A member of the RNA family "Selenocysteine insertion sequence 1" from Cynoglossus semilaevis, 66 nucleotides long. The family's RNA type in Rfam is cis-regulatory element.

[Rfam]
RNA sequence: GUGUGAUUAUGACGACCUGAUUGUAAACUCAACACUGGGUCACUCAGGUCUGAGGCUCAAACACAC
Numbered sequence: 001g002u003g004u005g006a007u008u009a010u011g012a013c014g015a016c017c018u019g020a021u022u023g024u025a026a027a028c029u030c031a032a033c034a035c036u037g038g039g040u041c042a043c044u045c046a047g048g049u050c051u052g053a054g055g056c057u058c059a060a061a062c063a064c065a066c
Stems, first nucleotide, its partner, number of pairs: 001066005014050007022042002029038003
The literature on the family includes a 1996 paper in RNA by Walczak et al., "A novel RNA structural motif in the selenocysteine insertion element of eukaryotic selenoprotein mRNAs".